U4atac minor spliceosomal RNA: a 123-nucleotide RNA from Diaphorina citri.
[Rfam]
RNA sequence: GUCUUCCUUGUCUAGGGGAGCAUAAUGUCCAGGGAUCGUAUUGUGAGGGCAUUGAUGCUGACAACCCUAAAUAAAUCAUCACGCUCAGGAAUGGAAACAUUUCUGGGCGUAAUUUUUGACAGG
Numbered sequence: 001g002u003c004u005u006c007c008u009u010g011u012c013u014a015g016g017g018g019a020g021c022a023u024a025a026u027g028u029c030c031a032g033g034g035a036u037c038g039u040a041u042u043g044u045g046a047g048g049g050c051a052u053u054g055a056u057g058c059u060g061a062c063a064a065c066c067c068u069a070a071a072u073a074a075a076u077c078a079u080c081a082c083g084c085u086c087a088g089g090a091a092u093g094g095a096a097a098c099a100u101u102u103c104u105g106g107g108c109g110u111a112a113u114u115u116u117u118g119a120c121a122g123g
Stems, first nucleotide, its partner, number of pairs: 005019005020058004024053007037043001081110006088102003

On this family, see Lorkovic et al., RNA 2005: "Evolutionary conservation of minor U12-type spliceosome between plants and humans". Clan: U4 clan. The base pairs follow the family's consensus structure, which is taken from published work. Rfam's curators write: U4atac is an essential component of the minor U12-type spliceosome complex which is required for removal of the rarer class of eukaryotic introns (AT-AC, U12-type). The family's RNA type in Rfam is spliceosomal small nuclear RNA.